Shown here is a 99-nucleotide sequence from Brochothrix campestris, a member of the family "SAM riboswitch aptamer (S box leader)". Its Rfam clan is "SAM clan". Taxonomically the source falls in Brochothrix campestris (Bacteria, Bacillati, Caryophanales, Listeriaceae). The base pairs follow the family's consensus structure, which is taken from published work. The match comes from Rfam's covariance-model search (84 bits). Rfam links the family to the GO term regulation of gene expression.
RNA sequence: AACUUAUCAAGAGAGAUGGAGGGUAUGGCCCGAUGAAGUCUCAGCAACCGGCAAAUGCACGGUGCUAAAUCCUACAAGCAAAUGCUUGGCAGAUGAGUA
Numbered sequence: 001a002a003c004u005u006a007u008c009a010a011g012a013g014a015g016a017u018g019g020a021g022g023g024u025a026u027g028g029c030c031c032g033a034u035g036a037a038g039u040c041u042c043a044g045c046a047a048c049c050g051g052c053a054a055a056u057g058c059a060c061g062g063u064g065c066u067a068a069a070u071c072c073u074a075c076a077a078g079c080a081a082a083u084g085c086u087u088g089g090c091a092g093a094u095g096a097g098u099a
Stems, first nucleotide, its partner, number of pairs: 002098007013042005021031003027072002043066004048062002051058002070091001075088005